[Rfam]
RNA sequence: UUCAUAGAUACAACGUUUAGACUGUCUCUAAAUUUUGUAUCUAUGCUGGUUACUUAAAUGUGUCAUUUCCCGCAUAGAUGAGUAUCUAUGCGGUUUUUGUUUUUU
Numbered sequence: 001u002u003c004a005u006a007g008a009u010a011c012a013a014c015g016u017u018u019a020g021a022c023u024g025u026c027u028c029u030a031a032a033u034u035u036u037g038u039a040u041c042u043a044u045g046c047u048g049g050u051u052a053c054u055u056a057a058a059u060g061u062g063u064c065a066u067u068u069c070c071c072g073c074a075u076a077g078a079u080g081a082g083u084a085u086c087u088a089u090g091c092g093g094u095u096u097u098u099g100u101u102u103u104u105u
Stems, first nucleotide, its partner, number of pairs: 003045009015033006070093010
RNA: trpB ncRNA motif